[Rfam]
RNA sequence: UUCACCCAAUACUGUAAGUCGCUCUAGAUAAGAGCUUCUGCUAAAUGACAAUUU
Dot-bracket structure: ............((((....(((((.....)))))...))).)...........
Numbered sequence: 001u002u003c004a005c006c007c008a009a010u011a012c013u014g015u016a017a018g019u020c021g022c023u024c025u026a027g028a029u030a031a032g033a034g035c036u037u038c039u040g041c042u043a044a045a046u047g048a049c050a051a052u053u054u
Stems, first nucleotide, its partner, number of pairs: 013043001014041003021035005

About this RNA: UnaL2 LINE 3' element: a 54-nucleotide RNA sequence from Salmo trutta. From the family's description: The eel long interspersed element (LINE) UnaL2 and its partner short interspersed element (SINE) share a conserved 3' tail containing a stem-loop that is critical for their retrotransposition.